[Rfam]
RNA sequence: AUGCCAUGGUGUGGGAACUUCCUAAGAAACUCCUUAUAGCGAUCUCAAGCCUCACACAAAGAUUCUCCAGUUUGCUGCGCAAACUUAAUAAGAGUAUUCCUGAUUGG
Numbered sequence: 001a002u003g004c005c006a007u008g009g010u011g012u013g014g015g016a017a018c019u020u021c022c023u024a025a026g027a028a029a030c031u032c033c034u035u036a037u038a039g040c041g042a043u044c045u046c047a048a049g050c051c052u053c054a055c056a057c058a059a060a061g062a063u064u065c066u067c068c069a070g071u072u073u074g075c076u077g078c079g080c081a082a083a084c085u086u087a088a089u090a091a092g093a094g095u096a097u098u099c100c101u102g103a104u105u106g107g
Base pairs, nucleotide, nucleotide: 003105005102006101057074058073060071